[Rfam]
RNA sequence: UCUGGGAGAUGAUGUGAACAAAAGGCCGAAUUGUAGCGCCUCCGCCAGGCAGUGUGUUCUGAGAGCGGGGCGCCGUGACCGAAGCGUUUGUCUGAUUCCAGA
Dot-bracket structure: (((((((......(..........((......))((((..((.(.((.(..((.(((((...)))))..))..).)).).))..))))...)...)))))))
A member of the RNA family "Small nucleolar RNA SNORD89" from Oreochromis niloticus, 102 nucleotides long. Rfam describes the family as follows. snoRNA HBII-289 belongs to the family of C/D snoRNAs. It is the human orthologue of the mouse MBII-289 and has no identified RNA target. The match comes from Rfam's covariance-model search (42 bits). By type it is a C/D-box small nucleolar RNA. Its family is annotated with nucleolus and RNA processing in the Gene Ontology. Rfam 15.1 lists 642 matches to the family in 573 species. The organism belongs to Oreochromis, within Eukaryota.